[Rfam]
Shown here is an 87-nucleotide RNA sequence, a member of the family "c-di-GMP-I-GGC riboswitch aptamer".
RNA sequence: CAACGCAAGGGCAAACCCGUCGCAAGGCGGGGACGCAAAGCCUCCGGUCUCGAGCUGUCACAGCACGAGAUAGCGGGGUUACCGGCA
Numbered sequence: 001c002a003a004c005g006c007a008a009g010g011g012c013a014a015a016c017c018c019g020u021c022g023c024a025a026g027g028c029g030g031g032g033a034c035g036c037a038a039a040g041c042c043u044c045c046g047g048u049c050u051c052g053a054g055c056u057g058u059c060a061c062a063g064c065a066c067g068a069g070a071u072a073g074c075g076g077g078g079u080u081a082c083c084g085g086c087a
Stems, first nucleotide, its partner, number of pairs: 011036002016031006034073001039080004044076003047071006